Background:
Rfam assigns this 116-nucleotide RNA sequence from Rhodococcoides fascians to the family "SAM (S-adenosyl methionine) riboswitch aptamer". A search with the family's covariance model found it, with a score of 111 bits. SAM-IV is a mRNA element that regulates gene expression via direct sensing of S-adenosylmethionine (SAM or AdoMet).
[Rfam]
RNA sequence: GGUCACGAGUACCAGCAUCGAGCCCCGGCUUGCUGGUCGGCAACCCUCCUUCGCGGUGGGGUGCUCCGGGUGACGACCAGGCUGACACCGAAAAAUCGGUGCGGCAAGCGCGGACU
Numbered sequence: 001g002g003u004c005a006c007g008a009g010u011a012c013c014a015g016c017a018u019c020g021a022g023c024c025c026c027g028g029c030u031u032g033c034u035g036g037u038c039g040g041c042a043a044c045c046c047u048c049c050u051u052c053g054c055g056g057u058g059g060g061g062u063g064c065u066c067c068g069g070g071u072g073a074c075g076a077c078c079a080g081g082c083u084g085a086c087a088c089c090g091a092a093a094a095a096u097c098g099g100u101g102c103g104g105c106a107a108g109c110g111c112g113g114a115c116u
Base pairs, nucleotide, nucleotide: 001078002077003076004075009038011037012036013035014034015033016032021030022029039065040064041063044061045060046059048056049055081105082104083103084102086101087100088099089098090097091096